[Rfam]
RNA sequence: AAAGUCUCUGGUAACUGGCGGAGUAGUGGAAAUCACCACAUGGGAAUCAGAGAUUUGCAGAGCCGACCGUCUGGGCAGUAUUU
Numbered sequence: 001a002a003a004g005u006c007u008c009u010g011g012u013a014a015c016u017g018g019c020g021g022a023g024u025a026g027u028g029g030a031a032a033u034c035a036c037c038a039c040a041u042g043g044g045a046a047u048c049a050g051a052g053a054u055u056u057g058c059a060g061a062g063c064c065g066a067c068c069g070u071c072u073g074g075g076c077a078g079u080a081u082u083u
Base pairs, nucleotide, nucleotide: 003055004054005053006052007051008050009049010048011047012046015043016042017071018070019069020068021067026039027038028037029036062076063075064074

ZMP/ZTP riboswitch aptamer (pfl RNA motif): an 83-nucleotide RNA from Blautia obeum. It is one of the family's seed sequences. Pairs were carried over by alignment from the consensus structure, which is taken from published work.